[Rfam]
RNA sequence: AAUUUUAUAUAAGAGUCUUAUCGUAUAAAUGCAGGAAUAGGGCCUGCGCGUCUCUACCAAACUACCGUAAAUAGUUUGACUACGAUAAUCAUCUAAUUUUAU
Number, nucleotide and partner (000 for none) at each position: 001a000002a000003u000004u000005u000006u000007a000008u000009a000010u000011a000012a000013g000014a000015g000016u000017c000018u088019u087020a086021u085022c084023g083024u082025a081026u000027a000028a000029a000030u048031g047032c046033a045034g044035g043036a000037a000038u000039a000040g000041g000042g000043c035044c034045u033046g032047c031048g030049c000050g000051u000052c000053u000054c000055u000056a000057c000058c078059a077060a076061a075062c074063u073064a072065c000066c000067g000068u000069a000070a000071a000072u064073a063074g062075u061076u060077u059078g058079a000080c000081u025082a024083c023084g022085a021086u020087a019088a018089u000090c000091a000092u000093c000094u000095a000096a000097u000098u000099u000100u000101a000102u000

About this RNA: The family of this 102-nucleotide RNA sequence from Halalkalibacter hemicellulosilyticus is "Purine riboswitch aptamer". It scores 89 bits against the family's covariance model. Rfam links the family to the GO term purine nucleobase biosynthetic process.